RNA sequence: GGGUGUUCUAAAGACCUGCUCUCUAGGCUACGCGCGGAGAACGCAUGUUUCUCUUGGGCCCUUGAGCCCGCCUAGGGGAAAGUCCCCGGACCUUGGGCAGAGAGUGCCGCGUGCUUUGCAGCGCGCAACAACCCGUCUCGCGAGCCCACGUUGAUUCCGCCAAGAAGCCCUCAGGGCCGAGCGGGUGGGCGCGGGAGGGGCCUCUCGUCACCUCCAUAGUCACGCAGGUAGUGCGCAUGUGUAUCUUUCACAGAGAUCGCCGCACCAACAGAACGGGGCUCAUUCUCAGAACGCC
Numbered sequence: 001g002g003g004u005g006u007u008c009u010a011a012a013g014a015c016c017u018g019c020u021c022u023c024u025a026g027g028c029u030a031c032g033c034g035c036g037g038a039g040a041a042c043g044c045a046u047g048u049u050u051c052u053c054u055u056g057g058g059c060c061c062u063u064g065a066g067c068c069c070g071c072c073u074a075g076g077g078g079a080a081a082g083u084c085c086c087c088g089g090a091c092c093u094u095g096g097g098c099a100g101a102g103a104g105u106g107c108c109g110c111g112u113g114c115u116u117u118g119c120a121g122c123g124c125g126c127a128a129c130a131a132c133c134c135g136u137c138u139c140g141c142g143a144g145c146c147c148a149c150g151u152u153g154a155u156u157c158c159g160c161c162a163a164g165a166a167g168c169c170c171u172c173a174g175g176g177c178c179g180a181g182c183g184g185g186u187g188g189g190c191g192c193g194g195g196a197g198g199g200g201c202c203u204c205u206c207g208u209c210a211c212c213u214c215c216a217u218a219g220u221c222a223c224g225c226a227g228g229u230a231g232u233g234c235g236c237a238u239g240u241g242u243a244u245c246u247u248u249c250a251c252a253g254a255g256a257u258c259g260c261c262g263c264a265c266c267a268a269c270a271g272a273a274c275g276g277g278g279c280u281c282a283u284u285c286u287c288a289g290a291a292c293g294c295c
Stems, first nucleotide, its partner, number of pairs: 002295008011286001014229006022076007037053005081280002084278004096108004109126006129200001136196006145189004157184004167177004231265005
Shown here is a 295-nucleotide RNA sequence from Podarcis lilfordi, a member of the family "RNase MRP". About the family: RNase MRP is an enzymatically active ribonucleoprotein with two distinct roles in eukaryotes. In mitochondria it plays a direct role in the initiation of mitochondrial DNA replication. A reference for the family is Rosenblad et al. (2006), "Inventory and analysis of the protein subunits of the ribonucleases P and MRP provides further evidence of homology between the yeast and human enzymes", Nucleic Acids Res. Its Rfam clan is "RNaseP clan".